[Rfam]
Nucleotides: 246
Base pairs, nucleotide, nucleotide: 011018012017072245073244074243075242076241078239088236089235090234091233092230093229094228095227096223097222099221100220101219102218103217104214106212107211108210109209110208111207112206113205118148119147121145122144123143124142126140127139128138130137131136155159161203162202163201164200165199171196172195173194174193179188180187181186
Number, partner (000 for none) and nucleotide at each position: 001000g002000c003000a004000g005000c006000u007000g008000u009000u010000a011018c012017u013000g014000u015000u016000u017012a018011g019000g020000g021000a022000u023000a024000g025000c026000a027000a028000u029000g030000g031000a032000u033000a034000a035000c036000a037000u038000u039000g040000c041000g042000a043000u044000a045000g046000c047000u048000u049000u050000g051000g052000g053000a054000c055000g056000c057000u058000a059000c060000a061000a062000u063000g064000u065000u066000g067000a068000a069000g070000g071000a072245a073244u074243u075242u076241g077000a078239g079000a080000g081000c082000c083000u084000g085000a086000g087000a088236c089235c090234u091233c092230c093229c094228g095227u096223c097222u098000a099221u100220c101219a102218c103217a104214a105000g106212a107211c108210a109209u110208c111207a112206g113205u114000u115000a116000c117000a118148g119147a120000u121145c122144a123143u124142g125000a126140c127139u128138c129000g130137u131136u132000g133000c134000a135000a136131a137130g138128g139127g140126g141000a142124c143123a144122u145121g146000u147119u148118c149000a150000a151000g152000u153000a154000a155159u156000a157000a158000u159155g160000a161203a162202c163201c164200a165199u166000g167000c168000a169000c170000c171196g172195c173194c174193u175000c176000a177000g178000g179188c180187u181186g182000g183000a184000a185000a186181c187180a188179g189000a190000g191000c192000a193174g194173g195172g196171u197000u198000a199165g200164u201163g202162g203161u204000c205113g206112c207111u208110g209109a210108u211107g212106u213000a214104u215000g216000g217103u218102g219101u220100g221099a222097a223096g224000a225000u226000u227095g228094c229093g230092g231000u232000c233091g234090a235089g236088g237000c238000a239078c240000a241076c242075a243074g244073g245072u246000a
Protozoan signal recognition particle RNA: a 246-nucleotide RNA from Plasmodium ovale. Its Rfam clan is "SRP clan". Gene Ontology terms of the family: signal recognition particle, endoplasmic reticulum targeting and SRP-dependent cotranslational protein targeting to membrane, signal sequence recognition. Taxonomically the source falls in Plasmodium ovale (Eukaryota, Apicomplexa, Aconoidasida, Plasmodium). The family's consensus secondary structure is taken from published work.